This 379-nucleotide RNA from Sphingobacterium sp. SGL-16 belongs to the Rfam family "Bacterial RNase P class A". By type it is a ribozyme. The family is grouped with related families in Rfam's "RNaseP clan". The organism belongs to Sphingobacterium, within Bacteria. The family's consensus secondary structure is taken from published work.
RNA sequence: AAGCAAACUGGUUCUAUCGCUGUCCUGUAAUGGGAGAGAGGAAAGUCCGGGCAACAUAGAGCGACACGCUUCCUAACGGGAAGGAUACCUUUGGGUAGACAGAAAGUGCCACAGAGAAUAUACCGCCUUACUUUAAUGUAGGGUAAGGGUGAAAACGUGAGGUAAGAGCUCACGGUCUUGUAUGGUGACAUACAUUACGGUAAACCUCGUGUGUUGAAAAACCAAAUAGGUUGUGAGAAUCAAGGGCUGCUCGUCUUUUUCUUUUCGGGGAACUCACAAUGGGUAGGUUGAUGGAGCUUGUGCGUGAGUGCAAGCCUAGAUAAAUGAUAGAAAUCCUUACUUAAGGAUACAGAACCCGGCUUAUAAGGUUUGCUUCUUU
Numbered sequence: 001a002a003g004c005a006a007a008c009u010g011g012u013u014c015u016a017u018c019g020c021u022g023u024c025c026u027g028u029a030a031u032g033g034g035a036g037a038g039a040g041g042a043a044a045g046u047c048c049g050g051g052c053a054a055c056a057u058a059g060a061g062c063g064a065c066a067c068g069c070u071u072c073c074u075a076a077c078g079g080g081a082a083g084g085a086u087a088c089c090u091u092u093g094g095g096u097a098g099a100c101a102g103a104a105a106g107u108g109c110c111a112c113a114g115a116g117a118a119u120a121u122a123c124c125g126c127c128u129u130a131c132u133u134u135a136a137u138g139u140a141g142g143g144u145a146a147g148g149g150u151g152a153a154a155a156c157g158u159g160a161g162g163u164a165a166g167a168g169c170u171c172a173c174g175g176u177c178u179u180g181u182a183u184g185g186u187g188a189c190a191u192a193c194a195u196u197a198c199g200g201u202a203a204a205c206c207u208c209g210u211g212u213g214u215u216g217a218a219a220a221a222c223c224a225a226a227u228a229g230g231u232u233g234u235g236a237g238a239a240u241c242a243a244g245g246g247c248u249g250c251u252c253g254u255c256u257u258u259u260u261c262u263u264u265u266c267g268g269g270g271a272a273c274u275c276a277c278a279a280u281g282g283g284u285a286g287g288u289u290g291a292u293g294g295a296g297c298u299u300g301u302g303c304g305u306g307a308g309u310g311c312a313a314g315c316c317u318a319g320a321u322a323a324a325u326g327a328u329a330g331a332a333a334u335c336c337u338u339a340c341u342u343a344a345g346g347a348u349a350c351a352g353a354a355c356c357c358g359g360c361u362u363a364u365a366a367g368g369u370u371u372g373c374u375u376c377u378u379u
Stems, first nucleotide, its partner, number of pairs: 001375009011364001012332007020038002023035005043362003047359005052216004061265001064212005069083005084100001086097003101207002106205002108201003123148002125144007156174006179194006220289004230280006258272005296315008